This 57-nucleotide sequence from Xenopus tropicalis belongs to the Rfam family "U7 small nuclear RNA". A search with the family's covariance model found it, with a score of 37 bits.
[Rfam]
RNA sequence: AAGUGUUACAGCUCUGUUACUAUUGGCCCAGCAGGUUCUUACUGUGUAGGGGCCCCU
Dot-bracket structure: .................................((((((((.....))))))))...